About this RNA
A member of the RNA family "Guanidine-I riboswitch aptamer" from Paenibacillus lentus, 104 nucleotides long. The pairing is the family consensus, mapped onto this sequence. It scores 88 bits against the family's covariance model. The organism belongs to Paenibacillus, within Bacteria. About the family: This family represents a conserved RNA structure found upstream of the ykkC and yxkD genes in Bacillus subtilis and related genes in other bacteria. The function of this family is unclear although it has been suggested that it may function to switch on efflux pumps and detoxification systems in response to harmful environmental molecules. Rfam links the family to the GO term regulation of gene expression. On this family, see Nelson et al., Mol Cell 2017: "Metabolism of Free Guanidine in Bacteria Is Regulated by a Widespread Riboswitch Class".
RNA sequence: ACAAUUGUUCUCUAGGGUUCCGCGGCGAAGUACACGCCGGCCUGGUCCAAGAGAGGACACGCAGGAAAUAUCUUGCGACACGGAGGGACAAAAGCCCGGGAGGA
Number, nucleotide and partner (000 for none) at each position: 001a000002c000003a000004a000005u000006u000007g058008u057009u056010c055011u054012c053013u000014a000015g048016g047017g000018u000019u000020c045021c044022g042023c039024g038025g037026c036027g035028a000029a000030g000031u000032a000033c000034a000035c027036g026037c025038c024039g023040g000041c000042c022043u000044g021045g020046u000047c016048c015049a000050a000051g000052a000053g012054a011055g010056g009057a008058c007059a000060c077061g076062c075063a074064g073065g072066a071067a000068a000069u000070a000071u066072c065073u064074u063075g062076c061077g060078a000079c099080a000081c102082g000083g000084a000085g097086g096087g095088a000089c000090a000091a000092a000093a000094g000095c087096c086097c085098g000099g079100g000101a000102g081103g000104a000